[Rfam]
Rfam assigns this 135-nucleotide RNA from Pseudomonas sp. StFLB209 to the family "Pseudomonas rpsL leader".
Its family is annotated with regulation of gene expression in the Gene Ontology.
On this family, see Naville and Gautheret, Genome Biol 2010: "Premature terminator analysis sheds light on a hidden world of bacterial transcriptional attenuation".
By type it is a cis-regulatory leader.
The base pairs follow the family's consensus structure, which is taken from published work.
RNA sequence: GGUCGGGGCAUUGCCUUGACUGGGGGCGAGAUCCUCUUUAGACUCUUGUACCCCUAAAUUUGACAGGGCCUAUCGCCCUGUCAUUUGCUUUCUUGCAGGCAAUAGCGUCUGCAAGUCAACAGUGGAGCUAGUAGA
Numbered sequence: 001g002g003u004c005g006g007g008g009c010a011u012u013g014c015c016u017u018g019a020c021u022g023g024g025g026g027c028g029a030g031a032u033c034c035u036c037u038u039u040a041g042a043c044u045c046u047u048g049u050a051c052c053c054c055u056a057a058a059u060u061u062g063a064c065a066g067g068g069c070c071u072a073u074c075g076c077c078c079u080g081u082c083a084u085u086u087g088c089u090u091u092c093u094u095g096c097a098g099g100c101a102a103u104a105g106c107g108u109c110u111g112c113a114a115g116u117c118a119a120c121a122g123u124g125g126a127g128c129u130a131g132u133a134g135a
Stems, first nucleotide, its partner, number of pairs: 004018006022053003026049006034041002061083009101132001103130004107117001109115001